RNA sequence: UCAAGUCCUAAGAUACAGAGUAGUAGGCUUUGUUUAUGGUGCAGAAAGUUGGCGGAUGAUGCGAGCCAGCCCUUAAAUUUGCUGAACUCACUGUGGAGGAUCAGCUAUGAAUUAGUAAUAGCUGACGCUUGAUUAGUGUUAACAAUCAUUGAGAGGAUGGCAAUAGCUGUCAAUCAGGGUGGUAUCGCGGGUGUAUAUAACUCGUCCCUGGC
Numbered sequence: 001u002c003a004a005g006u007c008c009u010a011a012g013a014u015a016c017a018g019a020g021u022a023g024u025a026g027g028c029u030u031u032g033u034u035u036a037u038g039g040u041g042c043a044g045a046a047a048g049u050u051g052g053c054g055g056a057u058g059a060u061g062c063g064a065g066c067c068a069g070c071c072c073u074u075a076a077a078u079u080u081g082c083u084g085a086a087c088u089c090a091c092u093g094u095g096g097a098g099g100a101u102c103a104g105c106u107a108u109g110a111a112u113u114a115g116u117a118a119u120a121g122c123u124g125a126c127g128c129u130u131g132a133u134u135a136g137u138g139u140u141a142a143c144a145a146u147c148a149u150u151g152a153g154a155g156g157a158u159g160g161c162a163a164u165a166g167c168u169g170u171c172a173a174u175c176a177g178g179g180u181g182g183u184a185u186c187g188c189g190g191g192u193g194u195a196u197a198u199a200a201c202u203c204g205u206c207c208c209u210g211g212c
Stems, first nucleotide, its partner, number of pairs: 007099002015094004026083003038072002048070006102124007126138003156171006176209004187205005

Shown here is a 212-nucleotide sequence from Pelosinus fermentans, a member of the family "T-box leader". The family's consensus secondary structure is taken from published work.